[Rfam]
RNA sequence: ACACGUAUACAAGCGCUGGGCCUGCGGCGACGCAGGACACGAGGAAAGAGGUUCCCUUCCGCGAGGGAGGGCUAAGGAUUGCAGAUUGAUCCGAAUAAUCUACAUUACAUGCAAUCCGAAAAUCGAAUUGAUCAGCGGAUGCCUCUCAGGCCAGCCACAUCCUGCGAGCGCCCCUCCAAAACCGUCUGGCGACAGGCGCGGCAAUCGGGGGCGCGGUGGAGCAA
Numbered sequence: 001a002c003a004c005g006u007a008u009a010c011a012a013g014c015g016c017u018g019g020g021c022c023u024g025c026g027g028c029g030a031c032g033c034a035g036g037a038c039a040c041g042a043g044g045a046a047a048g049a050g051g052u053u054c055c056c057u058u059c060c061g062c063g064a065g066g067g068a069g070g071g072c073u074a075a076g077g078a079u080u081g082c083a084g085a086u087u088g089a090u091c092c093g094a095a096u097a098a099u100c101u102a103c104a105u106u107a108c109a110u111g112c113a114a115u116c117c118g119a120a121a122a123u124c125g126a127a128u129u130g131a132u133c134a135g136c137g138g139a140u141g142c143c144u145c146u147c148a149g150g151c152c153a154g155c156c157a158c159a160u161c162c163u164g165c166g167a168g169c170g171c172c173c174c175u176c177c178a179a180a181a182c183c184g185u186c187u188g189g190c191g192a193c194a195g196g197c198g199c200g201g202c203a204a205u206c207g208g209g210g211g212c213g214c215g216g217u218g219g220a221g222c223a224a
Base pairs, nucleotide, nucleotide: 021036022035023034024033025032026031047146048145049144050143051142056135147164148163149162150161168214169213170212171211172210173209174208183198184197185196186195187194188193
RNA: glmS glucosamine-6-phosphate activated ribozyme aptamer
Organism: Roseiflexaceae bacterium